[Rfam]
RNA sequence: UAUGAGAAAGGCGAUGGAGUCCGCCGCGCCACCUGACUUGCGCUGAGCGAGGAAAGUGGCGAAACCGCAGAUGACAACCAGCGCUGCUGAUGGCUCCUGAUUUACG
Numbered sequence: 001u002a003u004g005a006g007a008a009a010g011g012c013g014a015u016g017g018a019g020u021c022c023g024c025c026g027c028g029c030c031a032c033c034u035g036a037c038u039u040g041c042g043c044u045g046a047g048c049g050a051g052g053a054a055a056g057u058g059g060c061g062a063a064a065c066c067g068c069a070g071a072u073g074a075c076a077a078c079c080a081g082c083g084c085u086g087c088u089g090a091u092g093g094c095u096c097c098u099g100a101u102u103u104a105c106g
Stems, first nucleotide, its partner, number of pairs: 010025004016097006067087004
A member of the RNA family "Fluoride riboswitch aptamer (crcB RNA motif)" from Thermogemmatispora tikiterensis, 106 nucleotides long. The match comes from Rfam's covariance-model search (40 bits). The family has 289 seed sequences and 2,293 matches in Rfam 15.1.